[Rfam]
RNA: Pseudomonas sRNA CrcZ
Organism: Pseudomonas fluorescens
RNA sequence: AUAACAAGAAUAAAAAGCAGCAAACCAAUAAAAAUAAGACGUACCGACUCUGACAUAACAAAAACAACACGGCAGAGACGCAGCUAACAGAUUUUUUUGGAGAAGGUGUGCUUUUCAGGGUGUUCCUCGGAAUGACCCGCAACCGGGCAGAGAACAAUAAAACUACCUUCAGGUAGCUCCCGAAUCGGUUGGAUCGCUAGACGAGAAAGCAGAUCAGCGCUCAAAAAAAUACGUUUGCUCUUGACCCCGGAUGGGGGUCGCCAAAAAACAGCGGUAAAGGGCCACGGUUGCCAAAAACAACAACAGACCGCCCCUCAAUAAUAAAAAGAGCACGCGACGACAAAAUUAAAGGGGAGCUUCGGCUCCCCUUUGUGCUGUCUGGCGUUCUG
Numbered sequence: 001a002u003a004a005c006a007a008g009a010a011u012a013a014a015a016a017g018c019a020g021c022a023a024a025c026c027a028a029u030a031a032a033a034a035u036a037a038g039a040c041g042u043a044c045c046g047a048c049u050c051u052g053a054c055a056u057a058a059c060a061a062a063a064a065c066a067a068c069a070c071g072g073c074a075g076a077g078a079c080g081c082a083g084c085u086a087a088c089a090g091a092u093u094u095u096u097u098u099g100g101a102g103a104a105g106g107u108g109u110g111c112u113u114u115u116c117a118g119g120g121u122g123u124u125c126c127u128c129g130g131a132a133u134g135a136c137c138c139g140c141a142a143c144c145g146g147g148c149a150g151a152g153a154a155c156a157a158u159a160a161a162a163c164u165a166c167c168u169u170c171a172g173g174u175a176g177c178u179c180c181c182g183a184a185u186c187g188g189u190u191g192g193a194u195c196g197c198u199a200g201a202c203g204a205g206a207a208a209g210c211a212g213a214u215c216a217g218c219g220c221u222c223a224a225a226a227a228a229a230u231a232c233g234u235u236u237g238c239u240c241u242u243g244a245c246c247c248c249g250g251a252u253g254g255g256g257g258u259c260g261c262c263a264a265a266a267a268a269c270a271g272c273g274g275u276a277a278a279g280g281g282c283c284a285c286g287g288u289u290g291c292c293a294a295a296a297a298c299a300a301c302a303a304c305a306g307a308c309c310g311c312c313c314c315u316c317a318a319u320a321a322u323a324a325a326a327a328g329a330g331c332a333c334g335c336g337a338c339g340a341c342a343a344a345a346u347u348a349a350a351g352g353g354g355a356g357c358u359u360c361g362g363c364u365c366c367c368c369u370u371u372g373u374g375c376u377g378u379c380u381g382g383c384g385u386u387c388u389g
Base pairs, nucleotide, nucleotide: 045080046079048077049076050075051074095226096225097224098223099222109219110218111217140191141190142189143188144187145186146185163176164175165174166173167172244258245257246256247255248254279385281383282382283381284380285310286309287308288307330375331374332373333372349370350369351368352367353366354365355364356363357362